[Rfam]
RNA: MIR6152 microRNA precursor family
Organism: Nicotiana sylvestris
RNA sequence: UUGACAGAUUAUUGUAUUAGACUGUAUUCACGGCGAGAAACAAGGGAUUACACUAAUUUUAAACGAAAAGUGAAUCAAUUAACAUAAUCGACUCCU
Number, nucleotide and partner (000 for none) at each position: 001u000002u000003g094004a093005c000006a000007g000008a000009u090010u000011a088012u087013u086014g085015u084016a000017u082018u081019a000020g080021a079022c000023u077024g076025u000026a075027u074028u073029c072030a071031c070032g000033g000034c065035g064036a000037g059038a058039a057040a000041c000042a054043a000044g000045g000046g000047a000048u000049u000050a000051c000052a000053c000054u042055a000056a000057u039058u038059u037060u000061a000062a000063a000064c035065g034066a000067a000068a000069a000070g031071u030072g029073a028074a027075u026076c024077a023078a000079u021080u020081a018082a017083c000084a015085u014086a013087a012088u011089c000090g009091a000092c000093u004094c003095c000096u000